RNA: TPP riboswitch aptamer (THI element)
RNA sequence: AGCCACGUAACGGGGGGCUGGCGUCAAGCCGGCUGAGAUAGCGCGUAUUGCCGCGCUGACCCGAAAACCUGAUCUGGGUAAUGCCAGCGUAGGAAGAGCGUUUCUCCUUUUA
Numbered sequence: 001a002g003c004c005a006c007g008u009a010a011c012g013g014g015g016g017g018c019u020g021g022c023g024u025c026a027a028g029c030c031g032g033c034u035g036a037g038a039u040a041g042c043g044c045g046u047a048u049u050g051c052c053g054c055g056c057u058g059a060c061c062c063g064a065a066a067a068c069c070u071g072a073u074c075u076g077g078g079u080a081a082u083g084c085c086a087g088c089g090u091a092g093g094a095a096g097a098g099c100g101u102u103u104c105u106c107c108u109u110u111u112a
Stems, first nucleotide, its partner, number of pairs: 006100003011063004017033005040057005068093004074087004